The record is a 127-nucleotide RNA sequence, which matches "Small nucleolar RNA SNORA25" in Rfam. From the family's description: ACA25 is a member of the H/ACA class of snoRNA that guide the sites of modification of uridines to pseudouridines.
RNA sequence: AGGACAUUUCAAUGCGGGCUCAUGGGGCUGUGAAGCCAAGAGCUAUUAACACUAUGACCAAGGAUUGAAAUUCUCUAUAGGAUCCGUAGCACUGAAUAGUGCUAUAUUUUCCGGAGGAAGUAUAAGA
Numbered sequence: 001a002g003g004a005c006a007u008u009u010c011a012a013u014g015c016g017g018g019c020u021c022a023u024g025g026g027g028c029u030g031u032g033a034a035g036c037c038a039a040g041a042g043c044u045a046u047u048a049a050c051a052c053u054a055u056g057a058c059c060a061a062g063g064a065u066u067g068a069a070a071u072u073c074u075c076u077a078u079a080g081g082a083u084c085c086g087u088a089g090c091a092c093u094g095a096a097u098a099g100u101g102c103u104a105u106a107u108u109u110u111c112c113g114g115a116g117g118a119a120g121u122a123u124a125a126g127a
Stems, first nucleotide, its partner, number of pairs: 002059002005056003014047001017044005023039001026037002072120001074118003080112003086105008
The family's consensus secondary structure was predicted with RNAfold.